RNA: Mammalian CPEB3 ribozyme
RNA sequence: CGAGAGUUUGAGGUCAUAGAAGAAGUGGUCGCAGCAUGGUCAUGUCAGAUUCCAGUGCAUCUGCAAAUUCUGCU
Numbered sequence: 001c002g003a004g005a006g007u008u009u010g011a012g013g014u015c016a017u018a019g020a021a022g023a024a025g026u027g028g029u030c031g032c033a034g035c036a037u038g039g040u041c042a043u044g045u046c047a048g049a050u051u052c053c054a055g056u057g058c059a060u061c062u063g064c065a066a067a068u069u070c071u072g073c074u
Base pairs, nucleotide, nucleotide: 012041013040014039015038018074019073021071022070023069024068025037026036027035046063047062048061049060050059052057